Shown here is a 390-nucleotide sequence from Salana multivorans, a member of the family "Bacterial RNase P class A".
Rfam classes the family as a ribozyme.
[Rfam]
Nucleotides: 390
Stems, first nucleotide, its partner, number of pairs: 001386010012331007020053002023050003027046004058373003062370005067239004074266004079235005084098005099113001100111004114230002119228002121224003136169002138165007146157004177195006197219001198217008243288004253279002256276001257271005295314008
Number, partner (000 for none) and nucleotide at each position: 001386u002385g003384a004383g005382c006381c007380g008379g009378c010377c011000a012331g013330g014329c015328g016327g017326c018325c019000g020053c021052g022000u023050c024049c025048g026000c027046c028045g029044g030043c031000g032000u033000c034000g035000c036000u037000c038000g039000c040000g041000a042000g043030g044029c045028c046027g047000a048025c049024g050023g051000c052021c053020g054000a055000g056000g057000a058373a059372c060371g061000u062370c063369c064368g065367g066366g067239c068238u069237c070236c071000a072000c073000a074266g075265g076264g077263c078000a079235g080234g081233g082232u083231g084098g085097u086096g087095g088094g089000u090000a091000a092000c093000g094088c095087c096086c097085a098084c099113c100111c101110g102109g103108g104000g105000c106000g107000a108103c109102c110101c111100g112000c113099g114230g115229g116000a117000c118000a119228g120227u121224g122223c123222c124000a125000c126000a127000g128000a129000g130000a131000a132000c133000a134000g135000a136169c137168c138165g139164c140163c141162g142161c143160c144159g145000a146157c147156g148155c149154u150000c151000u152000c153000g154149g155148g156147c157146g158000c159144c160143g161142g162141c163140g164139g165138u166000a167000a168137g169136g170000g171000u172000g173000a174000a175000a176000c177195g178194g179193u180192g181191g182190g183000g184000u185000a186000a187000g188000a189000g190182c191181c192180c193179a194178c195177c196000a197219g198217c199216g200215u201214g202213c203212c204211g205210g206000g207000c208000g209000a210205c211204c212203g213202g214201c215200g216199c217198g218000g219197c220000u221000a222123g223122g224121u225000a226000a227120a228119c229115c230114c231083c232082a233081c234080c235079c236070g237069g238068a239067g240000c241000a242000a243288g244287g245286c246285c247000a248000g249000a250000c251000a252000g253279g254278g255000a256276g257271c258270g259269a260268g261267c262000u263077g264076c265075c266074c267261g268260c269259u270258c271257g272000a273000u274000g275000c276256u277000c278254c279253c280000g281000g282000g283000u284000a285246g286245g287244c288243c289000g290000c291000u292000g293000g294000a295314g296313g297312c298311g299310c300309a301308c302307g303000g304000c305000a306000a307302c308301g309300u310299g311298c312297g313296u314295c315000g316000u317000a318000g319000a320000u321000g322000g323000a324000u325018g326017g327016u328015c329014g330013c331012c332000a333000c334000c335000g336000c337000g338000g339000c340000g341000c342000c343000g344000g345000c346000g347000a348000c349000g350000g351000c352000g353000c354000c355000g356000c357000g358000g359000g360000a361000c362000a363000g364000a365000a366066c367065c368064c369063g370062g371060c372059g373058u374000a375000c376000c377010g378009g379008c380007c381006g382005g383004c384003u385002c386001a387000u388000c389000c390000c